[Rfam]
Nucleotides: 271
Stems, first nucleotide, its partner, number of pairs: 012036004019031004023240001025238002039104002043101004047096002049091008163265001166262006184256005190216003195210003221250001225246001227244004
Number, partner (000 for none) and nucleotide at each position: 001000a002000a003000a004000g005000u006000c007000c008000c009000g010000g011000u012036c013035g014034g015033g016000u017000a018000a019031g020030g021029g022028u023240u024000a025238g026237c027000c028022g029021c030020c031019c032000g033015c034014c035013c036012g037000u038000a039104u040103c041000g042000c043101g044100u045099g046098u047096u048095g049091g050090u051089c052088c053087c054086g055085u056084u057000g058000c059000g060000g061000a062000g063000u064000a065000g066000g067000g068000u069000a070000a071000c072000c073000u074000g075000c076000g077000a078000a079000c080000a081000a082000c083000a084056g085055a086054c087053g088052g089051g090050g091049c092000a093000a094000g095048c096047g097000u098046a099045c100044a101043c102000a103040g104039a105000g106000a107000a108000u109000c110000c111000u112000g113000u114000a115000g116000g117000c118000c119000g120000c121000a122000g123000g124000g125000g126000a127000g128000g129000u130000c131000g132000c133000g134000c135000u136000c137000c138000c139000u140000g141000a142000a143000g144000u145000g146000a147000c148000c149000u150000g151000g152000u153000u154000c155000a156000g157000a158000u159000c160000g161000g162000g163265g164000c165000a166262g167261c168260u169259u170258c171257g172000a173000c174000a175000g176000g177000c178000c179000a180000a181000g182000a183000u184256g185255c186254g187253g188252a189000a190216g191215c192214c193000g194000a195210c196209a197208g198000u199000c200000u201000u202000a203000a204000c205000u206000u207000c208197c209196u210195g211000g212000a213000a214192g215191g216190c217000a218000a219000c220000a221250c222000g223000a224000a225246c226000c227244a228243c229242c230241c231000g232000c233000a234000a235000u236000g237026g238025c239000a240023a241230g242229g243228g244227u245000u246225g247000g248000g249000a250221g251000a252188u253187c254186c255185g256184c257171c258170g259169g260168a261167g262166u263000c264000c265163u266000u267000a268000a269000g270000u271000c